[Rfam]
RNA sequence: AAACUUACUUGGCGCCGGGACCAGGGUGAUCACGAAUGCCCUGGCCCCAGGUGGAGGCUCGCCAUUGCACUCCGGCGUGUUGAAGCCUGCGACGAUCCCUAAUUGGGUGCGCUCGGACGCGUAGUUUUUGUCAGUGGGGAGGUCUUCGGAUCAUCCUU
Numbered sequence: 001a002a003a004c005u006u007a008c009u010u011g012g013c014g015c016c017g018g019g020a021c022c023a024g025g026g027u028g029a030u031c032a033c034g035a036a037u038g039c040c041c042u043g044g045c046c047c048c049a050g051g052u053g054g055a056g057g058c059u060c061g062c063c064a065u066u067g068c069a070c071u072c073c074g075g076c077g078u079g080u081u082g083a084a085g086c087c088u089g090c091g092a093c094g095a096u097c098c099c100u101a102a103u104u105g106g107g108u109g110c111g112c113u114c115g116g117a118c119g120c121g122u123a124g125u126u127u128u129u130g131u132c133a134g135u136g137g138g139g140a141g142g143u144c145u146u147c148g149g150a151u152c153a154u155c156c157u158u
Stems, first nucleotide, its partner, number of pairs: 012120003017047003021043001023042005049088004056081003060077004090115003093111001095108001097106002136158005141152004
Shown here is a 158-nucleotide RNA sequence from Schistosoma mansoni, a member of the family "U1 spliceosomal RNA". The base pairs follow the family's consensus structure, which is taken from published work.